[Rfam]
RNA: MIR396 microRNA precursor family
Organism: Morella rubra
RNA sequence: UGUCAUGCUUUUCCACGGCUUUCUUGAACUUCAUCUCCUUGGCUCUUCCCUGCACGGCCUCUAGAUGCGGCUAAUUAGAAGUUCAAGAAAGCUGUGGGAGAACAUGGCAA
Number, nucleotide and partner (000 for none) at each position: 001u000002g000003u107004c106005a105006u104007g103008c000009u000010u000011u000012u000013c097014c096015a095016c000017g093018g092019c091020u090021u089022u088023c000024u086025u085026g084027a083028a000029c081030u080031u079032c078033a000034u000035c000036u000037c000038c000039u000040u000041g000042g000043c000044u000045c000046u000047u000048c000049c000050c000051u000052g000053c000054a000055c000056g000057g000058c000059c000060u000061c000062u000063a000064g000065a000066u000067g000068c000069g000070g000071c000072u000073a000074a000075u000076u000077a000078g032079a031080a030081g029082u000083u027084c026085a025086a024087g000088a022089a021090a020091g019092c018093u017094g000095u015096g014097g013098g000099a000100g000101a000102a000103c007104a006105u005106g004107g003108c000109a000110a000